This 90-nucleotide sequence from Otus sunia belongs to the Rfam family "Small nucleolar RNA SNORD60". For this family Rfam cites "Purified box C/D snoRNPs are able to reproduce site-specific 2'-O-methylation of target RNA in vitro" (Galardi et al., Mol Cell Biol, 2002). Its Rfam clan is "SNORD60 clan". It scores 45 bits against the family's covariance model. By type it is a C/D-box small nucleolar RNA. The source organism's lineage runs through Eukaryota, Vertebrata, Amniota, Dinosauria and Otus.
RNA sequence: GGCCGGUGAUGAUCUUAUCUACCUUUCUGACACCUCGUCUGAGGGCGGCGGGCGGCCGCGGCCCCUGCUGACGAUCCCCGGCUGAGGCCC
Numbered sequence: 001g002g003c004c005g006g007u008g009a010u011g012a013u014c015u016u017a018u019c020u021a022c023c024u025u026u027c028u029g030a031c032a033c034c035u036c037g038u039c040u041g042a043g044g045g046c047g048g049c050g051g052g053c054g055g056c057c058g059c060g061g062c063c064c065c066u067g068c069u070g071a072c073g074a075u076c077c078c079c080g081g082c083u084g085a086g087g088c089c090c
Stems, first nucleotide, its partner, number of pairs: 001089004045059005